JUMPstart RNA: a 39-nucleotide RNA sequence from Bacillus licheniformis. The family's consensus secondary structure is taken from published work. Rfam classes the family as a cis-regulatory element.
RNA sequence: AAGCACAGCGGCAGCAAAUAAGCCGCGGGCGGUGGUGUC
Numbered sequence: 001a002a003g004c005a006c007a008g009c010g011g012c013a014g015c016a017a018a019u020a021a022g023c024c025g026c027g028g029g030c031g032g033u034g035g036u037g038u039c
Base pairs, nucleotide, nucleotide: 008026009025010024011023012022